[Rfam]
RNA: tRNA
RNA sequence: GCUAGGGUGGCCGAGUGGUUAUGGCGUUGGACCAAGGAUCCAAUUCACUAAAGUGAGCAUGGGUUCGACCCCCAUCCCUGGCA
Numbered sequence: 001g002c003u004a005g006g007g008u009g010g011c012c013g014a015g016u017g018g019u020u021a022u023g024g025c026g027u028u029g030g031a032c033c034a035a036g037g038a039u040c041c042a043a044u045u046c047a048c049u050a051a052a053g054u055g056a057g058c059a060u061g062g063g064u065u066c067g068a069c070c071c072c073c074a075u076c077c078c079u080g081g082c083a
Stems, first nucleotide, its partner, number of pairs: 001082007010025004027043005059075005
Dot-bracket structure: (((((((..((((........)))).(((((.......)))))...............(((((.......)))))))))))).